[Rfam]
Nucleotides: 072
Base pairs, nucleotide, nucleotide: 002034003033004032005031006030008028009027011025012024013023014022038068039067040066045061046060047059048058049057
Number, partner (000 for none) and nucleotide at each position: 001000c002034g003033g004032c005031g006030c007000g008028g009027c010000a011025g012024g013023g014022g015000a016000u017000u018000g019000c020000g021000g022014c023013c024012c025011c026000g027009g028008c029000a030006g031005c032004g033003c034002c035000u036000a037000a038068c039067c040066a041000c042000a043000a044000c045061u046060g047059u048058c049057u050000g051000a052000a053000a054000a055000g056000g057049a058048g059047a060046c061045a062000a063000g064000c065000a066040u067039g068038g069000c070000u071000u072000u